[Rfam]
RNA sequence: AAUCGCUUCUACGGCAUAUCUCCACGCGAUGGAGAAUAGCAGAGGGCGAGGAGCCUGAGCCUCAGCAACAGCGGCAUGAUGCCGGAAAGCUGGAAAAUCACGCGUGGCACACCUGAAGCCACGGAUUCAAGCAGAGGUUGGUAGGUUGAUUCUCGAACACCUUGGGCUUG
Numbered sequence: 001a002a003u004c005g006c007u008u009c010u011a012c013g014g015c016a017u018a019u020c021u022c023c024a025c026g027c028g029a030u031g032g033a034g035a036a037u038a039g040c041a042g043a044g045g046g047c048g049a050g051g052a053g054c055c056u057g058a059g060c061c062u063c064a065g066c067a068a069c070a071g072c073g074g075c076a077u078g079a080u081g082c083c084g085g086a087a088a089g090c091u092g093g094a095a096a097a098u099c100a101c102g103c104g105u106g107g108c109a110c111a112c113c114u115g116a117a118g119c120c121a122c123g124g125a126u127u128c129a130a131g132c133a134g135a136g137g138u139u140g141g142u143a144g145g146u147u148g149a150u151u152c153u154c155g156a157a158c159a160c161c162u163u164g165g166g167c168u169u170g
Stems, first nucleotide, its partner, number of pairs: 003049005012042001014040002019035005051061001062093005072084005128170005134163005144153002